[Rfam]
RNA sequence: CGGUUUAGAGGUUGAAAAGUAUUCCCGCUCCAACGCGCUGUCUUAAUGACAGGCCGAGAAAUGUGGGCGACCGCGGGUCCCACCUAAAUCG
Numbered sequence: 001c002g003g004u005u006u007a008g009a010g011g012u013u014g015a016a017a018a019g020u021a022u023u024c025c026c027g028c029u030c031c032a033a034c035g036c037g038c039u040g041u042c043u044u045a046a047u048g049a050c051a052g053g054c055c056g057a058g059a060a061a062u063g064u065g066g067g068c069g070a071c072c073g074c075g076g077g078u079c080c081c082a083c084c085u086a087a088a089u090c091g
Base pairs, nucleotide, nucleotide: 001091002090003089004088005087006086007085008084011034012033013032014031024077025076026075027074028073036058038052039051040050041049042048063083064082065081066080067079

A member of the RNA family "skipping-rope RNA", 91 nucleotides long. The sequence is in the family's curated seed alignment. Rfam classes the family as a small RNA.